Shown here is a 208-nucleotide RNA from Paenibacillus agri, a member of the family "Lysine riboswitch aptamer". The base pairs follow the family's consensus structure, which is taken from published work. Rfam links the family to the GO term lysine biosynthetic process.

RNA sequence: GGAUGAGGUAGAGGUCGCGGAUAGGAAGAGUACGCGCGUAGAGACGUUGAAGAGCCGUCGAUGACACGCUGCCGAAAGGUCUAUCCGCCGAAGCCUGUGCUGCCGCUCUACCUGCGGCGCAGGCUGGGACCGUUUCCGAAAGGAACGGAACUGUCACGGGGCAUUUUCCUAUUGCAUAGGGAAUGCACUGUGUUGCGCUAUCUUCUCA
Dot-bracket structure: .....((((((.....(((((((((........((((((..........................)))).)).......)))))))))...((((((((((((..........))))))))))))((..(((((((.....)))))))..))..(((((............................))))).....)))))).....